[Rfam]
RNA: Small nucleolar RNA SNORA58
RNA sequence: CUGCAUACCAGUAGACCCUUUUUGACUGUGCCUGUGGUCAUAAAGGGGGGACAGUGUAUGCAACAGCAAAGCAUAAGUUGCCAGCAGACUCAUUCAGGCAGAUCUAUGACUGAUUGGCCUGUGGUACUUGUACAGAA
Numbered sequence: 001c002u003g004c005a006u007a008c009c010a011g012u013a014g015a016c017c018c019u020u021u022u023u024g025a026c027u028g029u030g031c032c033u034g035u036g037g038u039c040a041u042a043a044a045g046g047g048g049g050g051a052c053a054g055u056g057u058a059u060g061c062a063a064c065a066g067c068a069a070a071g072c073a074u075a076a077g078u079u080g081c082c083a084g085c086a087g088a089c090u091c092a093u094u095c096a097g098g099c100a101g102a103u104c105u106a107u108g109a110c111u112g113a114u115u116g117g118c119c120u121g122u123g124g125u126a127c128u129u130g131u132a133c134a135g136a137a
Stems, first nucleotide, its partner, number of pairs: 003061006016047006023040002074130004079126001082123002094113004